Overview: The family of this 69-nucleotide RNA from Microbispora oryzae is "ASpks TB sRNA". The family's consensus secondary structure is taken from published work. The family's RNA type in Rfam is antisense RNA. NCBI's taxonomy places the organism under Bacteria, Actinomycetota, Streptosporangiales, Streptosporangiaceae, Microbispora.
RNA sequence: CUUGAGCGAGCCCAGCCAGAGCGGCUCGUCCCGGUUCUGGCCGUAGGCGGCCAGCACGGCCUGGGCCUC
Numbered sequence: 001c002u003u004g005a006g007c008g009a010g011c012c013c014a015g016c017c018a019g020a021g022c023g024g025c026u027c028g029u030c031c032c033g034g035u036u037c038u039g040g041c042c043g044u045a046g047g048c049g050g051c052c053a054g055c056a057c058g059g060c061c062u063g064g065g066c067c068u069c
Base pairs, nucleotide, nucleotide: 014026015025016024017023032059037054038053039052041050042049043048